[Rfam]
RNA sequence: ACAAAAGCAGGGUCUUGUUGCCAUUUUCGAUUACUUGCAUUAUUAUUGGGUGAACCUCUGGAUUUUCUCGGUAACUUAAGGUUCAGUAAAUGAUGCAACAUUU
Numbered sequence: 001a002c003a004a005a006a007g008c009a010g011g012g013u014c015u016u017g018u019u020g021c022c023a024u025u026u027u028c029g030a031u032u033a034c035u036u037g038c039a040u041u042a043u044u045a046u047u048g049g050g051u052g053a054a055c056c057u058c059u060g061g062a063u064u065u066u067c068u069c070g071g072u073a074a075c076u077u078a079a080g081g082u083u084c085a086g087u088a089a090a091u092g093a094u095g096c097a098a099c100a101u102u103u
Stems, first nucleotide, its partner, number of pairs: 005027003036097009051085007